The family of this 31-nucleotide RNA sequence from Pustulibacterium marinum is "S4-Flavobacteria ribosomal protein leader".
By type it is a cis-regulatory leader.
The family's consensus secondary structure is taken from published work.
[Rfam]
RNA sequence: GAUUAUCGAAGGAUAGCCUUAAUUCAUAAUU
Numbered sequence: 001g002a003u004u005a006u007c008g009a010a011g012g013a014u015a016g017c018c019u020u021a022a023u024u025c026a027u028a029a030u031u
Stems, first nucleotide, its partner, number of pairs: 001031006008025001009020004